[Rfam]
RNA sequence: AGCUUUGCGCAGUGGCAGUAUCAUAGCCAAUGAGGUCCAACCGAGGCGUGAUUAUUGUUAAUUGUGCUGAGGCUGAAGCUUGAUGAAAACGGAGGAGCUGUGUUCCCAUUAGGGAAGAGCUGCUGGCUUAAUUUUUGUUGGGGGCUUUGCACAUGCUC
Numbered sequence: 001a002g003c004u005u006u007g008c009g010c011a012g013u014g015g016c017a018g019u020a021u022c023a024u025a026g027c028c029a030a031u032g033a034g035g036u037c038c039a040a041c042c043g044a045g046g047c048g049u050g051a052u053u054a055u056u057g058u059u060a061a062u063u064g065u066g067c068u069g070a071g072g073c074u075g076a077a078g079c080u081u082g083a084u085g086a087a088a089a090c091g092g093a094g095g096a097g098c099u100g101u102g103u104u105c106c107c108a109u110u111a112g113g114g115a116a117g118a119g120c121u122g123c124u125g126g127c128u129u130a131a132u133u134u135u136u137g138u139u140g141g142g143g144g145c146u147u148u149g150c151a152c153a154u155g156c157u158c
Stems, first nucleotide, its partner, number of pairs: 020052005026047003034042003070129003073125001075123001077121005142158004